Rfam assigns this 87-nucleotide RNA from Pseudomonas taeanensis to the family "gyrA RNA". Rfam classes the family as a cis-regulatory element. Taxonomically the source falls in Pseudomonas taeanensis (Bacteria, Pseudomonadota, Gammaproteobacteria, Pseudomonas).
[Rfam]
RNA sequence: UCGUGCGUCGCUGCUGGCCUUGGGCCGCAGCGGCGAGCUUCGCCUCGUUCAGGACGGACGGCGCGGAGCCUCACUAGAAAAAAGGAA
Numbered sequence: 001u002c003g004u005g006c007g008u009c010g011c012u013g014c015u016g017g018c019c020u021u022g023g024g025c026c027g028c029a030g031c032g033g034c035g036a037g038c039u040u041c042g043c044c045u046c047g048u049u050c051a052g053g054a055c056g057g058a059c060g061g062c063g064c065g066g067a068g069c070c071u072c073a074c075u076a077g078a079a080a081a082a083a084g085g086a087a
Base pairs, nucleotide, nucleotide: 007034008033009032010031011030012029013028014027017025018024035071037069038068039067040066041065042064043063045061046060047059048058049057050056